Rfam assigns this 46-nucleotide sequence from Felis catus to the family "Histone 3' UTR stem-loop". It is annotated as a cis-regulatory element. The base pairs follow the family's consensus structure, which is taken from published work. It scores 34 bits against the family's covariance model. Rfam links the family to the GO term mRNA 3'-end processing by stem-loop binding and cleavage. Taxonomically the source falls in Felis (Eukaryota, Deuterostomia, Eutheria, Felinae).
RNA sequence: AAAAAGGCCCUUUUUAGGGCCCCCAAGUUUUCGUUAAAAGGGCUUU
Numbered sequence: 001a002a003a004a005a006g007g008c009c010c011u012u013u014u015u016a017g018g019g020c021c022c023c024c025a026a027g028u029u030u031u032c033g034u035u036a037a038a039a040g041g042g043c044u045u046u
Base pairs, nucleotide, nucleotide: 006021007020008019009018010017011016